[Rfam]
RNA: t44 RNA
Organism: Thioflavicoccus mobilis
RNA sequence: UCCGGCACGCUCCAAGUCCGCACAUGCGCCGUCACAGAGAGCUGGGUGCCCCGCGGGGGUCGCUGUCUGGGGCGCGUGGAGGCCCAAC
Numbered sequence: 001u002c003c004g005g006c007a008c009g010c011u012c013c014a015a016g017u018c019c020g021c022a023c024a025u026g027c028g029c030c031g032u033c034a035c036a037g038a039g040a041g042c043u044g045g046g047u048g049c050c051c052c053g054c055g056g057g058g059g060u061c062g063c064u065g066u067c068u069g070g071g072g073c074g075c076g077u078g079g080a081g082g083c084c085c086a087a088c
Base pairs, nucleotide, nucleotide: 023078024077025076026075027074028073029072030071035069036068037067038066040064041063042062048060049059050058051057052056